[Rfam]
RNA sequence: UGGCUGUAAUGGCCAUCUCGAAAGAAGAUUUUCGCAUCUCCGUUCCAGUUUCCCUUUCCAUUCCAACGGAAAGCGGUGCCCGGUUCGAAUCCUGUGGUCGUCAUUUUCCACCAGUGUGGGUAACCCAUUGAGUUGGUUGGCGUUAAGGGUGAGAAACAACCUUCAGGGAAGCAAUUCUGCAGAGAGUUCUCCCCAUAGGGUGGCGGCGCCGGAUUACACUGCGAUCCGGUAUGGGAAGCUGGGGUAGGAAAGAAAUGUCGACUU
Numbered sequence: 001u002g003g004c005u006g007u008a009a010u011g012g013c014c015a016u017c018u019c020g021a022a023a024g025a026a027g028a029u030u031u032u033c034g035c036a037u038c039u040c041c042g043u044u045c046c047a048g049u050u051u052c053c054c055u056u057u058c059c060a061u062u063c064c065a066a067c068g069g070a071a072a073g074c075g076g077u078g079c080c081c082g083g084u085u086c087g088a089a090u091c092c093u094g095u096g097g098u099c100g101u102c103a104u105u106u107u108c109c110a111c112c113a114g115u116g117u118g119g120g121u122a123a124c125c126c127a128u129u130g131a132g133u134u135g136g137u138u139g140g141c142g143u144u145a146a147g148g149g150u151g152a153g154a155a156a157c158a159a160c161c162u163u164c165a166g167g168g169a170a171g172c173a174a175u176u177c178u179g180c181a182g183a184g185a186g187u188u189c190u191c192c193c194c195a196u197a198g199g200g201u202g203g204c205g206g207c208g209c210c211g212g213a214u215u216a217c218a219c220u221g222c223g224a225u226c227c228g229g230u231a232u233g234g235g236a237a238g239c240u241g242g243g244g245u246a247g248g249a250a251a252g253a254a255a256u257g258u259c260g261a262c263u264u
Base pairs, nucleotide, nucleotide: 001015002014003013004012021264022263027259028258029257031255032254035252037250038247039246042245043244045242046241047240048239049238050237051236052235053234054233067228068227069226070225073222074221075220076219077218078217080212081211082210083209084208085206086205087204089201090200091199092198093197094196095195096194097193099142101140102139103138107136108135109132112130113129114128115127116126118125119124143147151191152190153189154188155187161184162183163182168177169176170175
RNA: Fungal signal recognition particle RNA